The record is a 38-nucleotide RNA, which matches "DUF805b RNA" in Rfam.
By type it is a cis-regulatory element.
[Rfam]
RNA sequence: CAGGACGCCGCCGAAAAUCCUAUUUAAUAGAGUAGGCA
Numbered sequence: 001c002a003g004g005a006c007g008c009c010g011c012c013g014a015a016a017a018u019c020c021u022a023u024u025u026a027a028u029a030g031a032g033u034a035g036g037c038a
Stems, first nucleotide, its partner, number of pairs: 002021004010037003

Pairs were carried over by alignment from the consensus structure, which is taken from published work.